[Rfam]
RNA sequence: GCGGACCAACCGUGUCCGCUGGGAUGUGGCCCAAACCGGGCUGAACCGCAAA
Numbered sequence: 001g002c003g004g005a006c007c008a009a010c011c012g013u014g015u016c017c018g019c020u021g022g023g024a025u026g027u028g029g030c031c032c033a034a035a036c037c038g039g040g041c042u043g044a045a046c047c048g049c050a051a052a
Stems, first nucleotide, its partner, number of pairs: 001019005020048003028042005

Shown here is a 52-nucleotide RNA, a member of the family "eL15-Euryarchaeota ribosomal protein leader". The family's consensus secondary structure is taken from published work. Rfam classes the family as a cis-regulatory leader.